Overview: The family of this 130-nucleotide RNA from Azospirillum griseum is "TPP riboswitch aptamer (THI element)".

RNA sequence: CGGCCAUUCCAGGGGGGCCCCGCCAGGGGGCUGAGAUAUCACCGGUCGGUGCCGCGCGCACCCGGCAGCGUGAUGACCCUUCGAACCUGAUCCGGGUCAUGCCGGCGAAGGGAGGGAACACGCGAUGGGG
Numbered sequence: 001c002g003g004c005c006a007u008u009c010c011a012g013g014g015g016g017g018c019c020c021c022g023c024c025a026g027g028g029g030g031c032u033g034a035g036a037u038a039u040c041a042c043c044g045g046u047c048g049g050u051g052c053c054g055c056g057c058g059c060a061c062c063c064g065g066c067a068g069c070g071u072g073a074u075g076a077c078c079c080u081u082c083g084a085a086c087c088u089g090a091u092c093c094g095g096g097u098c099a100u101g102c103c104g105g106c107g108a109a110g111g112g113a114g115g116g117a118a119c120a121c122g123c124g125a126u127g128g129g130g
Stems, first nucleotide, its partner, number of pairs: 007117004011080004017031005038074005086111003092105004
A search with the family's covariance model found it, with a score of 65 bits.